[Rfam]
RNA sequence: UAUAUUACUUCGCUUAAUCUUGUUCUUUAAGAGCGGGGGACCCAAUAUAAUAGCGGAAAUUCCGCACGGGUGAAUCUUCUAAAAAGAUGGGCUUCUAGUUUCCCCUGAGUCCUAACCCGAAAGCUAACCUCGUCAGCGUUCAAGAGGAAACAA
Numbered sequence: 001u002a003u004a005u006u007a008c009u010u011c012g013c014u015u016a017a018u019c020u021u022g023u024u025c026u027u028u029a030a031g032a033g034c035g036g037g038g039g040a041c042c043c044a045a046u047a048u049a050a051u052a053g054c055g056g057a058a059a060u061u062c063c064g065c066a067c068g069g070g071u072g073a074a075u076c077u078u079c080u081a082a083a084a085a086g087a088u089g090g091g092c093u094u095c096u097a098g099u100u101u102c103c104c105c106u107g108a109g110u111c112c113u114a115a116c117c118c119g120a121a122a123g124c125u126a127a128c129c130u131c132g133u134c135a136g137c138g139u140u141c142a143a144g145a146g147g148a149a150a151c152a153a
Base pairs, nucleotide, nucleotide: 011138012137013136014135018032019031020030033133034132035131036130037129038128068118069117070116076086077085078084089112090111091110092109093108094107

Record summary: This 153-nucleotide RNA from Oceanobacillus piezotolerans belongs to the Rfam family "c-di-AMP riboswitch aptamer (ydaO/yuaA leader)". Taxonomically the source falls in Oceanobacillus (Bacteria, Bacillati, Bacilli, Bacillaceae).